[Rfam]
RNA sequence: AAUCCCUGUGAUGAACUAGCUUAAUAAUUUAAUGGUGGCCUGAUGACCAUUGAUGAAAAGCUUUAUUCUGAGGGAUU
Numbered sequence: 001a002a003u004c005c006c007u008g009u010g011a012u013g014a015a016c017u018a019g020c021u022u023a024a025u026a027a028u029u030u031a032a033u034g035g036u037g038g039c040c041u042g043a044u045g046a047c048c049a050u051u052g053a054u055g056a057a058a059a060g061c062u063u064u065a066u067u068c069u070g071a072g073g074g075a076u077u
Stems, first nucleotide, its partner, number of pairs: 001077006

Background:
Small nucleolar RNA R21: a 77-nucleotide sequence from Anisodus acutangulus. It is annotated as a C/D-box small nucleolar RNA. For this family Rfam cites "Identification of 66 box C/D snoRNAs in Arabidopsis thaliana: extensive gene duplications generated multiple isoforms predicting new ribosomal RNA 2'-O-methylation sites" (Barneche et al., J Mol Biol, 2001).